[Rfam]
RNA: Ribosomal S15 leader
RNA sequence: CGCGAAGACUGCAAAUAUGCGUGGUCUUCGACAUUUAUCAAUGCUUAGGCAUAUUAAACUGGAGAAGUAACAUGGCACUGACUGCCGAACGCAAGGCCGAAAUCGUCAAGGAAUUCGCCACUGCCGAG
Numbered sequence: 001c002g003c004g005a006a007g008a009c010u011g012c013a014a015a016u017a018u019g020c021g022u023g024g025u026c027u028u029c030g031a032c033a034u035u036u037a038u039c040a041a042u043g044c045u046u047a048g049g050c051a052u053a054u055u056a057a058a059c060u061g062g063a064g065a066a067g068u069a070a071c072a073u074g075g076c077a078c079u080g081a082c083u084g085c086c087g088a089a090c091g092c093a094a095g096g097c098c099g100a101a102a103u104c105g106u107c108a109a110g111g112a113a114u115u116c117g118c119c120a121c122u123g124c125c126g127a128g
Stems, first nucleotide, its partner, number of pairs: 007026006048082001050080001061079002064076001